Streptomyces RNA 3920: a 125-nucleotide RNA. By type it is a small RNA. The pairing is the family consensus, mapped onto this sequence. The match comes from Rfam's covariance-model search (110 bits). For this family Rfam cites "Deep sequencing-based identification of small non-coding RNAs in Streptomyces coelicolor" (Vockenhuber et al., RNA Biol, 2011).
[Rfam]
RNA sequence: GAUAGGUCGGUGUCGCUUCGGUGAUUGGACACUGACGGAGGGUCAAUUAGCCUUGUGCAGGCGGUUCUUCACAUGAGGAACCGGGGCGGUCCGAGCCACGAGGGGGGAGGCUCGGGCCGUCCGUG
Numbered sequence: 001g002a003u004a005g006g007u008c009g010g011u012g013u014c015g016c017u018u019c020g021g022u023g024a025u026u027g028g029a030c031a032c033u034g035a036c037g038g039a040g041g042g043u044c045a046a047u048u049a050g051c052c053u054u055g056u057g058c059a060g061g062c063g064g065u066u067c068u069u070c071a072c073a074u075g076a077g078g079a080a081c082c083g084g085g086g087c088g089g090u091c092c093g094a095g096c097c098a099c100g101a102g103g104g105g106g107g108a109g110g111c112u113c114g115g116g117c118c119g120u121c122c123g124u125g
Stems, first nucleotide, its partner, number of pairs: 001014004015051003021032003033045004058075002061072001063070002077082001085121013099106001